[Rfam]
RNA sequence: UACCGGCGAUUGAUCACGCCGCAGCCUGACCGCUGGCUCGUCCCCCGCCGCGGUAGGCCGGGCAAAGGCUCAUCCCCCCUCUCCGGGCCUUUGUCCCUCCAUUCCGCCACGACCGUCCCCCUCCCCGGUCGUGGCGGUUUCA
Numbered sequence: 001u002a003c004c005g006g007c008g009a010u011u012g013a014u015c016a017c018g019c020c021g022c023a024g025c026c027u028g029a030c031c032g033c034u035g036g037c038u039c040g041u042c043c044c045c046c047g048c049c050g051c052g053g054u055a056g057g058c059c060g061g062g063c064a065a066a067g068g069c070u071c072a073u074c075c076c077c078c079c080u081c082u083c084c085g086g087g088c089c090u091u092u093g094u095c096c097c098u099c100c101a102u103u104c105c106g107c108c109a110c111g112a113c114c115g116u117c118c119c120c121c122u123c124c125c126c127g128g129u130c131g132u133g134g135c136g137g138u139u140u141c142a
Stems, first nucleotide, its partner, number of pairs: 025057003029054003035049003060096011104137012
Rfam assigns this 142-nucleotide RNA from Rhizobium sp. Root149 to the family "Alphaproteobacterial sRNA ar7". The base pairs follow the family's consensus structure. It scores 77 bits against the family's covariance model. The family's RNA type in Rfam is small RNA. A reference for the family is del Val et al. (2012), "A survey of sRNA families in alpha-proteobacteria", RNA Biol.